[Rfam]
RNA: SAM (S-adenosyl methionine) riboswitch aptamer
RNA sequence: GUUCACGAGUUGCGGCUUUCGGUACCUGGCCGGCCGCACGGCAACCCGAGUCCAUCGACUUCCGGGUGCCCCAGGGGAAGAACGGGCGUCGUACCGUCCGGUGCGCCGCAAGGUUCGAUG
Numbered sequence: 001g002u003u004c005a006c007g008a009g010u011u012g013c014g015g016c017u018u019u020c021g022g023u024a025c026c027u028g029g030c031c032g033g034c035c036g037c038a039c040g041g042c043a044a045c046c047c048g049a050g051u052c053c054a055u056c057g058a059c060u061u062c063c064g065g066g067u068g069c070c071c072c073a074g075g076g077g078a079a080g081a082a083c084g085g086g087c088g089u090c091g092u093a094c095c096g097u098c099c100g101g102u103g104c105g106c107c108g109c110a111a112g113g114u115u116c117g118a119u120g
Base pairs, nucleotide, nucleotide: 001083002082003081004080009039011038012037013036014035015034016033021031022030040070041069042068045066046065047064049061050060086109087108088107090105091104092103093102094101095100